Record summary: A member of the RNA family "Purine riboswitch aptamer" from Lentibacillus sp. CBA3610, 102 nucleotides long. Rfam links the family to the GO term purine nucleobase biosynthetic process. Pairs were carried over by alignment from the consensus structure, which is taken from published work. Riboswitches are metabolite binding domains within certain messenger RNAs that serve as precision sensors for their corresponding targets.
[Rfam]
RNA sequence: CACCAAUUAAAUAGCCUGUUUCAUAUAAUCGCAGGGAUAUGGCCUGCAAGUAUCUACCGGUUUACCGUAAAUGAACCGACUAUGAAAGGGAGCAGAACAAAG
Numbered sequence: 001c002a003c004c005a006a007u008u009a010a011a012u013a014g015c016c017u018g019u020u021u022c023a024u025a026u027a028a029u030c031g032c033a034g035g036g037a038u039a040u041g042g043c044c045u046g047c048a049a050g051u052a053u054c055u056a057c058c059g060g061u062u063u064a065c066c067g068u069a070a071a072u073g074a075a076c077c078g079a080c081u082a083u084g085a086a087a088g089g090g091a092g093c094a095g096a097a098c099a100a101a102g
Base pairs, nucleotide, nucleotide: 019087020086021085022084023083024082025081029049031047032046033045034044035043058078059077060076061075062074063073064072